[Rfam]
The record is a 337-nucleotide sequence from Ramlibacter sp. WS9, which matches "Bacterial RNase P class A" in Rfam.

RNA sequence: GAAGCCCGCCAGACCGCCGCUGGUGCAAUCUGGGAAACCAGGCACUGGAGGAACGUCCGGACUGCACAGGGCAGCGUAGGAGGUAAUACCUCUCCACCGUGAGGUGAGGAUCAGAGCAACAGAGACGAGUCGCACCGGGCAACCGGUGCGGGUGAAACGGGCAAUCUCUACGCGCAGCAAUACCAAAUAGGCCAGCGUUGAUGUGGCUCCGCGGAGCUGGCGGGUAGGUAGCACCGAGCCGUGGGGGCGACCCCCGGCCCAGAGGAAUGGCGGUCACGUUCGGCCUUCGCAAGAGGGCCAGACGCCACAGAAUCCGGCUUAUCGGCGGACUUCACAC
Numbered sequence: 001g002a003a004g005c006c007c008g009c010c011a012g013a014c015c016g017c018c019g020c021u022g023g024u025g026c027a028a029u030c031u032g033g034g035a036a037a038c039c040a041g042g043c044a045c046u047g048g049a050g051g052a053a054c055g056u057c058c059g060g061a062c063u064g065c066a067c068a069g070g071g072c073a074g075c076g077u078a079g080g081a082g083g084u085a086a087u088a089c090c091u092c093u094c095c096a097c098c099g100u101g102a103g104g105u106g107a108g109g110a111u112c113a114g115a116g117c118a119a120c121a122g123a124g125a126c127g128a129g130u131c132g133c134a135c136c137g138g139g140c141a142a143c144c145g146g147u148g149c150g151g152g153u154g155a156a157a158c159g160g161g162c163a164a165u166c167u168c169u170a171c172g173c174g175c176a177g178c179a180a181u182a183c184c185a186a187a188u189a190g191g192c193c194a195g196c197g198u199u200g201a202u203g204u205g206g207c208u209c210c211g212c213g214g215a216g217c218u219g220g221c222g223g224g225u226a227g228g229u230a231g232c233a234c235c236g237a238g239c240c241g242u243g244g245g246g247g248c249g250a251c252c253c254c255c256g257g258c259c260c261a262g263a264g265g266a267a268u269g270g271c272g273g274u275c276a277c278g279u280u281c282g283g284c285c286u287u288c289g290c291a292a293g294a295g296g297g298c299c300a301g302a303c304g305c306c307a308c309a310g311a312a313u314c315c316g317g318c319u320u321a322u323c324g325g326c327g328g329a330c331u332u333c334a335c336a337c
Stems, first nucleotide, its partner, number of pairs: 001333004006328005011322001012275007020048007053320001055318001057317005062177004069209004074173005079093005094108001095106004109168002114166002116162002132149007181230004191221006202213004238258004243254004

The family's RNA type in Rfam is ribozyme. A search with the family's covariance model found it, with a score of 202 bits.